RNA sequence: GCCGGGCCUGGUAACGUGGGCUUGUGACUCAAGUGAGGGCAUGAAUGUGGUUGAAGGUUGGUUUGGUUGGAGAGGUAGGGUGCGCUGGGGUUGAGACACUGGCUCGCCCGUUCCAAGUGGGGAGUCUGAAUCUUGUGAUCCGACCGAAGGGUUGGGUAACGUGGUUCCUAGAGAGGAGGGCACCGCGUGAGGCUGGGUUCACAGAGCAGCGUUCACCUCCCGCUCCCUUCGGUGGAAGGAUAACGAGCUGGUACUCCACGGGCCCAACGACGCCUCCUCAGCCGCUCUCAACCCGACAACCACUUUU
Dot-bracket structure: ((((((((((......)))))))....(((....))))))..(((.(((((((..((((((..(((.(((.(((((.((((.((..(.((...(....((((((((.((.(((((.(.(((((((..(((((.(((.((((((((....)))))))).))).)))))(....).(((((.....((((....(((......)))....))))...))))).))))))).)..)))))))....)))))))))..))).)).))))......))))).))).)))..).))).))..))))))).)))
Numbered sequence: 001g002c003c004g005g006g007c008c009u010g011g012u013a014a015c016g017u018g019g020g021c022u023u024g025u026g027a028c029u030c031a032a033g034u035g036a037g038g039g040c041a042u043g044a045a046u047g048u049g050g051u052u053g054a055a056g057g058u059u060g061g062u063u064u065g066g067u068u069g070g071a072g073a074g075g076u077a078g079g080g081u082g083c084g085c086u087g088g089g090g091u092u093g094a095g096a097c098a099c100u101g102g103c104u105c106g107c108c109c110g111u112u113c114c115a116a117g118u119g120g121g122g123a124g125u126c127u128g129a130a131u132c133u134u135g136u137g138a139u140c141c142g143a144c145c146g147a148a149g150g151g152u153u154g155g156g157u158a159a160c161g162u163g164g165u166u167c168c169u170a171g172a173g174a175g176g177a178g179g180g181c182a183c184c185g186c187g188u189g190a191g192g193c194u195g196g197g198u199u200c201a202c203a204g205a206g207c208a209g210c211g212u213u214c215a216c217c218u219c220c221c222g223c224u225c226c227c228u229u230c231g232g233u234g235g236a237a238g239g240a241u242a243a244c245g246a247g248c249u250g251g252u253a254c255u256c257c258a259c260g261g262g263c264c265c266a267a268c269g270a271c272g273c274c275u276c277c278u279c280a281g282c283c284g285c286u287c288u289c290a291a292c293c294c295g296a297c298a299a300c301c302a303c304u305u306u307u
Stems, first nucleotide, its partner, number of pairs: 001040003004023007028037003043307003047303007056294002058291003061287001064284003068280003072276005078265004083260002087257001089256002094252001099251008108239002111237005117230001119228007128167005134161003138157008168173001175220005185212004193204003
Notes
This 307-nucleotide RNA sequence from Vitis rotundifolia belongs to the Rfam family "Plant signal recognition particle RNA". It scores 237 bits against the family's covariance model. Taxonomically the source falls in Vitis (Eukaryota, Streptophytina, Spermatophyta, Viteae).